Shown here is a 49-nucleotide RNA from Clostridium sp. SY8519, a member of the family "DUF3800-XI RNA".
Actinobacteria, Firmicutes, Proteobacteria, Spirochaetes (1 example).
The organism belongs to Clostridium, within Bacteria.
Rfam's curators put it in the seed alignment.
RNA sequence: UGGGCUGACCGAAAGGUCUUUGGCCCACCGGCUGGCGGGGAUUUACCCC
Numbered sequence: 001u002g003g004g005c006u007g008a009c010c011g012a013a014a015g016g017u018c019u020u021u022g023g024c025c026c027a028c029c030g031g032c033u034g035g036c037g038g039g040g041a042u043u044u045a046c047c048c049c
Base pairs, nucleotide, nucleotide: 001027002026003025004024005023006022007018008017009016010015